[Rfam]
A member of the RNA family "Small nucleolar RNA Z43" from Mikania micrantha, 102 nucleotides long. Gene Ontology terms of the family: nucleolus and RNA processing. The family's consensus secondary structure was predicted with PFOLD. The organism belongs to Mikania, within Eukaryota. Rfam classes the family as a C/D-box small nucleolar RNA.
RNA sequence: GGGCUAUGAUGAUCUCAUGUGAUAAGGUCUCGUUCGUCGUAACGGUGAUGCAAAAUCACCUUGCCGACCAUACUGCUAUAUCACCACCCAUAAACUGAGUCC
Numbered sequence: 001g002g003g004c005u006a007u008g009a010u011g012a013u014c015u016c017a018u019g020u021g022a023u024a025a026g027g028u029c030u031c032g033u034u035c036g037u038c039g040u041a042a043c044g045g046u047g048a049u050g051c052a053a054a055a056u057c058a059c060c061u062u063g064c065c066g067a068c069c070a071u072a073c074u075g076c077u078a079u080a081u082c083a084c085c086a087c088c089c090a091u092a093a094a095c096u097g098a099g100u101c102c
Base pairs, nucleotide, nucleotide: 001102002101003100004099047062048061